[Rfam]
RNA sequence: ACUGCACAUUCAAGUCUAUAGCAGAAGCGCUCAUGGUGUAGCCUGUCAGAUUCCAACAAAUCUGUGAAUUCUGCU
Numbered sequence: 001a002c003u004g005c006a007c008a009u010u011c012a013a014g015u016c017u018a019u020a021g022c023a024g025a026a027g028c029g030c031u032c033a034u035g036g037u038g039u040a041g042c043c044u045g046u047c048a049g050a051u052u053c054c055a056a057c058a059a060a061u062c063u064g065u066g067a068a069u070u071c072u073g074c075u
Stems, first nucleotide, its partner, number of pairs: 014042001016041002020075007027039003047064006

The record is a 75-nucleotide RNA sequence from Alligator mississippiensis, which matches "Mammalian CPEB3 ribozyme" in Rfam.